[Rfam]
RNA sequence: CGCGGAGAGCGCAGACCUGGCUGGUGUGGUACAGAGAAGCCAGCUUGGCUACGUGUCAUUCCAUG
Numbered sequence: 001c002g003c004g005g006a007g008a009g010c011g012c013a014g015a016c017c018u019g020g021c022u023g024g025u026g027u028g029g030u031a032c033a034g035a036g037a038a039g040c041c042a043g044c045u046u047g048g049c050u051a052c053g054u055g056u057c058a059u060u061c062c063a064u065g
Stems, first nucleotide, its partner, number of pairs: 001065002004062004009057001011056002014049001016047001019045007026032002

Shown here is a 65-nucleotide RNA sequence from Tupaia belangeri, a member of the family "MAT2A 3'UTR stem loop F". The family's RNA type in Rfam is cis-regulatory element. A reference for the family is Parker et al. (2011), "New families of human regulatory RNA structures identified by comparative analysis of vertebrate genomes", Genome Res.